mir-146 microRNA precursor family: a 90-nucleotide RNA from Phascolarctos cinereus.
[Rfam]
RNA sequence: CCUGGCAUUUGGCUCUGAGAACUGAAUUCCAUAGGCUGUGAGCUCAUGCAGAUGCCCUAGGAAAUCAGUUCUGGAGCCCGGUAGCCUCAA
Numbered sequence: 001c002c003u004g005g006c007a008u009u010u011g012g013c014u015c016u017g018a019g020a021a022c023u024g025a026a027u028u029c030c031a032u033a034g035g036c037u038g039u040g041a042g043c044u045c046a047u048g049c050a051g052a053u054g055c056c057c058u059a060g061g062a063a064a065u066c067a068g069u070u071c072u073g074g075a076g077c078c079c080g081g082u083a084g085c086c087u088c089a090a
Base pairs, nucleotide, nucleotide: 008081009080011078012077013076018072019071020070021069022068023067024066025065034056035055036054
Dot-bracket structure: .......((.(((....((((((((........(((.................)))........))))))))...))).)).........